[Rfam]
This 194-nucleotide RNA sequence from Setaria viridis belongs to the Rfam family "MIR1435 microRNA precursor family". Rfam 15.1 lists 1,765 matches to the family in 31 species. Its family is annotated with miRNA-mediated post-transcriptional gene silencing and RISC complex in the Gene Ontology. The family's consensus secondary structure was predicted with RNAalifold. The source organism's lineage runs through Eukaryota, Euphyllophyta, Petrosaviidae, Cenchrinae and Setaria.
Nucleotides: 194
Stems, first nucleotide, its partner, number of pairs: 005189001007187003011183013025169002031163005045149015061133005069125005
Number, partner (000 for none) and nucleotide at each position: 001000u002000u003000g004000c005189u006000c007187u008186g009185u010000c011183c012182u013181a014180a015179g016178u017177c018176a019175a020174a021173c022172u023171u024000a025169u026168c027000c028000a029000a030000c031163u032162u033161u034160g035159a036000c037000c038000a039000a040000g041000u042000u043000c044000a045149u046148a047147g048146a049145a050144a051143a052142a053141u054140a055139u056138a057137a058136c059135a060000a061133c062132u063131a064130u065129a066000c067000c068000a069125c070124c071123a072122a073121a074000c075000a076000u077000a078000u079000g080000c081000a082000c083000u084000a085000u086000g087000a088000a089000a090000a091000u092000a093000u094000a095000u096000u097000c098000c099000a100000u101000g102000g103000u104000g105000g106000a107000u108000u109000u110000a111000a112000u113000g114000a115000a116000a117000c118000a119000a120000a121073u122072u123071u124070g125069g126000u127000g128000u129065u130064g131063u132062a133061g134000a135059u136058g137057u138056u139055a140054u141053a142052u143051u144050u145049u146048u147047c148046u149045a150000c151000u152000a153000a154000c155000u156000u157000g158000g159035u160034c161033a162032a163031a164000g165000u166000u167000g168026g169025a170000c171023a172022a173021g174020u175019u176018u177017g178016a179015c180014u181013u182012a183011g184000g185009a186008c187007a188000a189005a190000g191000c192000a193000a194000a